[Rfam]
RNA sequence: CUGGGAACAAUAUCCUGGUGCUGUAUGAGUGAGUUGGAAAAGCUCCAGCAUCAGUGAUUUUGUCACUAG
Numbered sequence: 001c002u003g004g005g006a007a008c009a010a011u012a013u014c015c016u017g018g019u020g021c022u023g024u025a026u027g028a029g030u031g032a033g034u035u036g037g038a039a040a041a042g043c044u045c046c047a048g049c050a051u052c053a054g055u056g057a058u059u060u061u062g063u064c065a066c067u068a069g
Base pairs, nucleotide, nucleotide: 007063008062009061010060012058013057014056015054016053017052018051019050020049021048022047023046
The family of this 69-nucleotide RNA from Ameiurus melas is "mir-338 microRNA precursor family". Rfam links the family to the GO terms miRNA-mediated post-transcriptional gene silencing and RISC complex.